[Rfam]
This 86-nucleotide RNA from Paenibacillus radicis belongs to the Rfam family "c-di-GMP-I-GGC riboswitch aptamer".

RNA sequence: UACGAUAAUGGCAAACCUAUCGAAAGGUAGGGACGCAAAGCUAAAGGGCCUUUUCUCUUAAUGAGAUGGCAGCCUGGCCACCGAAG
Numbered sequence: 001u002a003c004g005a006u007a008a009u010g011g012c013a014a015a016c017c018u019a020u021c022g023a024a025a026g027g028u029a030g031g032g033a034c035g036c037a038a039a040g041c042u043a044a045a046g047g048g049c050c051u052u053u054u055c056u057c058u059u060a061a062u063g064a065g066a067u068g069g070c071a072g073c074c075u076g077g078c079c080a081c082c083g084a085a086g
Base pairs, nucleotide, nucleotide: 001086003083004082011036012035016031017030018029019028020027021026034072040078041077042076045075046074047073048070049069050068